[Rfam]
RNA: Guanidine-I riboswitch aptamer
RNA sequence: GCAAUGGACGGCUAGGGUUCCGAUUCGCUGACAAGGCGAAUGCUGGUCCGAGAGCUGUCGACCUCGGUAGGGGUUACACGGCGGGACAAAAGCCCGGGAGAU
Numbered sequence: 001g002c003a004a005u006g007g008a009c010g011g012c013u014a015g016g017g018u019u020c021c022g023a024u025u026c027g028c029u030g031a032c033a034a035g036g037c038g039a040a041u042g043c044u045g046g047u048c049c050g051a052g053a054g055c056u057g058u059c060g061a062c063c064u065c066g067g068u069a070g071g072g073g074u075u076a077c078a079c080g081g082c083g084g085g086a087c088a089a090a091a092g093c094c095c096g097g098g099a100g101a102u
Stems, first nucleotide, its partner, number of pairs: 007059006015049002020046002022043001023041006060075006077097001079100001083095003